[Rfam]
RNA sequence: AAAGUUGUCGUCUUCGGCAGACAGCAAAGCCUGGAUGAAAUGCGGGGGAAUGUCGGCGAACUUGAUGGGAGAGCGACGCAUCUCGCCAAAUUCGGCAAUCAGCUUGUUGUCGCUGCUGUAGACCCGCAAAGGGAUCUGCAACUGGAUGCUUCGCAGCGCCUCCACCGAGGGCAGGCUGGGACUAAGAUACAGAAACGCGCCGCUCAGGCCGAGCACGACUGCGCUAAUGACUGCGACGAAUGACCACCAGAAGAACUUCAGCAGACGAAUCAAGGCUUUGGGGUGUCCAGUUAA
Numbered sequence: 001a002a003a004g005u006u007g008u009c010g011u012c013u014u015c016g017g018c019a020g021a022c023a024g025c026a027a028a029g030c031c032u033g034g035a036u037g038a039a040a041u042g043c044g045g046g047g048g049a050a051u052g053u054c055g056g057c058g059a060a061c062u063u064g065a066u067g068g069g070a071g072a073g074c075g076a077c078g079c080a081u082c083u084c085g086c087c088a089a090a091u092u093c094g095g096c097a098a099u100c101a102g103c104u105u106g107u108u109g110u111c112g113c114u115g116c117u118g119u120a121g122a123c124c125c126g127c128a129a130a131g132g133g134a135u136c137u138g139c140a141a142c143u144g145g146a147u148g149c150u151u152c153g154c155a156g157c158g159c160c161u162c163c164a165c166c167g168a169g170g171g172c173a174g175g176c177u178g179g180g181a182c183u184a185a186g187a188u189a190c191a192g193a194a195a196c197g198c199g200c201c202g203c204u205c206a207g208g209c210c211g212a213g214c215a216c217g218a219c220u221g222c223g224c225u226a227a228u229g230a231c232u233g234c235g236a237c238g239a240a241u242g243a244c245c246a247c248c249a250g251a252a253g254a255a256c257u258u259c260a261g262c263a264g265a266c267g268a269a270u271c272a273a274g275g276c277u278u279u280g281g282g283g284u285g286u287c288c289a290g291u292u293a294a
Stems, first nucleotide, its partner, number of pairs: 010172008020162002025045001029041001047084002050081003054078002057075002062069001086095002102159002105155003108148004115142001117140006123133003176290005183283001186279002198267002201264001202262003206258002214238001219233001221232001244253001